[Rfam]
RNA sequence: GUUUAAGGGAGGUAAACUUAUUGAAAGAUAAGGACACAAAACUGGAAGCCGUAAAGAGAGUAUUGGGGAACUAACUUAACUUUCAGGUGGUUCGGUUGCGAUC
Numbered sequence: 001g002u003u004u005a006a007g008g009g010a011g012g013u014a015a016a017c018u019u020a021u022u023g024a025a026a027g028a029u030a031a032g033g034a035c036a037c038a039a040a041a042c043u044g045g046a047a048g049c050c051g052u053a054a055a056g057a058g059a060g061u062a063u064u065g066g067g068g069a070a071c072u073a074a075c076u077u078a079a080c081u082u083u084c085a086g087g088u089g090g091u092u093c094g095g096u097u098g099c100g101a102u103c
Stems, first nucleotide, its partner, number of pairs: 012037002017032006040097004045093003048088003055082001

Annotation:
Rfam assigns this 103-nucleotide sequence from Anaerobium acetethylicum to the family "c-di-GMP-I riboswitch aptamer". The base pairs follow the family's consensus structure, which is taken from published work. Rfam describes the family as follows. GEMM was predicted in a large-scale screen for bacterial structured RNA regulatory elements.